[Rfam]
RNA: DUF805 RNA
Organism: Brumimicrobium salinarum
RNA sequence: AAAUAGUGAAGACAAGCCUCACUUUAAAAACAGGGCGUAUCCGAAAAGCCACAUGAGUAGGGAAAUU
Numbered sequence: 001a002a003a004u005a006g007u008g009a010a011g012a013c014a015a016g017c018c019u020c021a022c023u024u025u026a027a028a029a030a031c032a033g034g035g036c037g038u039a040u041c042c043g044a045a046a047a048g049c050c051a052c053a054u055g056a057g058u059a060g061g062g063a064a065a066u067u
Stems, first nucleotide, its partner, number of pairs: 006022004034050003041061002